[Rfam]
RNA sequence: UCACUUACCUGGCGUAGGAAUUAGCACGAUCCGCAAGGUGCUUUUCCCAUCCGGAGUCGGCCCAUUGCACUACGGGUUUGAUGAAGGGUGCGAUAGUCGCUAAUGUCGAUUACUCGGGCGCAUGAUUUUUUUUCCGGGGGUUUUGCGUCCGCGCAUGCCCCUA
Numbered sequence: 001u002c003a004c005u006u007a008c009c010u011g012g013c014g015u016a017g018g019a020a021u022u023a024g025c026a027c028g029a030u031c032c033g034c035a036a037g038g039u040g041c042u043u044u045u046c047c048c049a050u051c052c053g054g055a056g057u058c059g060g061c062c063c064a065u066u067g068c069a070c071u072a073c074g075g076g077u078u079u080g081a082u083g084a085a086g087g088g089u090g091c092g093a094u095a096g097u098c099g100c101u102a103a104u105g106u107c108g109a110u111u112a113c114u115c116g117g118g119c120g121c122a123u124g125a126u127u128u129u130u131u132u133u134c135c136g137g138g139g140g141u142u143u144u145g146c147g148u149c150c151g152c153g154c155a156u157g158c159c160c161c162u163a
Base pairs, nucleotide, nucleotide: 012121013120014119015118017047018046019045020044023042024041025040026039027038049089050088051087052086056082057081058080059078060077061076062075063074091116092115093114094112095111096110098108099107136162137161138160139159140158142157144155145154146153147152
Record summary:
The record is a 163-nucleotide RNA sequence from Orchesella cincta, which matches "U1 spliceosomal RNA" in Rfam. The family's consensus secondary structure is taken from published work. The family's RNA type in Rfam is spliceosomal small nuclear RNA. A search with the family's covariance model found it, with a score of 109 bits.